[Rfam]
RNA sequence: AGAUUUCGUCGAGUUCUCCUCCUCCUCCCAUACUCGACGGAUAAGACCGGCCCACUCCUCCUCCCCUCCCAAAAGGGCCGGUCAUCAAAAACGGCACUCGCUGGCUCCUCCUCCCCCAGCGAGUGCUGUUU
Numbered sequence: 001a002g003a004u005u006u007c008g009u010c011g012a013g014u015u016c017u018c019c020u021c022c023u024c025c026u027c028c029c030a031u032a033c034u035c036g037a038c039g040g041a042u043a044a045g046a047c048c049g050g051c052c053c054a055c056u057c058c059u060c061c062u063c064c065c066c067u068c069c070c071a072a073a074a075g076g077g078c079c080g081g082u083c084a085u086c087a088a089a090a091a092c093g094g095c096a097c098u099c100g101c102u103g104g105c106u107c108c109u110c111c112u113c114c115c116c117c118a119g120c121g122a123g124u125g126c127u128g129u130u131u
Stems, first nucleotide, its partner, number of pairs: 007039003011035003045083009094126011
Dot-bracket structure: ......(((.(((...................))).))).....(((((((((.....................)))))))))..........(((((((((((...........))))))))))).....
This 131-nucleotide RNA from Nitratireductor aestuarii belongs to the Rfam family "Alphaproteobacterial ar14". NCBI's taxonomy places the organism under Bacteria, Pseudomonadati, Pseudomonadota, Hyphomicrobiales, Nitratireductor. The family's RNA type in Rfam is small RNA. A reference for the family is del Val et al. (2012), "A survey of sRNA families in alpha-proteobacteria", RNA Biol. From the family's description: Smr14C2 was renamed NfeR1 (Nodule Formation Efficiency RNA) highly expressed in salt stress and during the symbiotic interaction on legume roots. The family has 118 seed sequences and 784 matches in Rfam 15.1. A search with the family's covariance model found it, with a score of 77 bits.